[Rfam]
RNA sequence: UCACCUCCGGACCCUUAUCAUUCCCCAGCCCAGUGUUCGAUUUCAUACUGCUGGACGGAGAACUGAUAAGGGCCCGUAGCCUG
Number, nucleotide and partner (000 for none) at each position: 001u000002c000003a000004c000005c000006u000007c000008c000009g000010g000011a000012c072013c071014c070015u069016u068017a067018u066019c065020a064021u062022u061023c060024c000025c058026c057027a000028g000029c054030c053031c000032a000033g000034u000035g000036u000037u000038c000039g000040a000041u000042u000043u000044c000045a000046u000047a000048c000049u000050g000051c000052u000053g030054g029055a000056c000057g026058g025059a000060g023061a022062a021063c000064u020065g019066a018067u017068a016069a015070g014071g013072g012073c000074c000075c000076g000077u000078a000079g000080c000081c000082u000083g000
RNA: mir-184 microRNA precursor family